[Rfam]
RNA sequence: AAAGGAGCAAUAAACUCUCUUGAUAGAACAAGAAAUAGUUUAUUGCUCCUUAUAU
Numbered sequence: 001a002a003a004g005g006a007g008c009a010a011u012a013a014a015c016u017c018u019c020u021u022g023a024u025a026g027a028a029c030a031a032g033a034a035a036u037a038g039u040u041u042a043u044u045g046c047u048c049c050u051u052a053u054a055u
Base pairs, nucleotide, nucleotide: 002051003050004049005048006047007046008045009044010043011042012041013040018033019032020031021030022029

Annotation: Rfam assigns this 55-nucleotide sequence to the family "Plastid-psbA-3 3UTR RNA". About the family: Plastid psbA-3 is a non-coding RNA (ncRNA) present in plastids. It was identified in inverted repeat sequences in the 3 prime untranslate region (3UTR) of photosystem II quinone-binding protein (psbA). Clan: Plastid-psbA 3UTR RNA clan. The family's consensus secondary structure was predicted with LocARNA. For this family Rfam cites "Retrograde signaling in plants: A critical review focusing on the GUN pathway and beyond" (Richter et al., Plant Commun, 2023).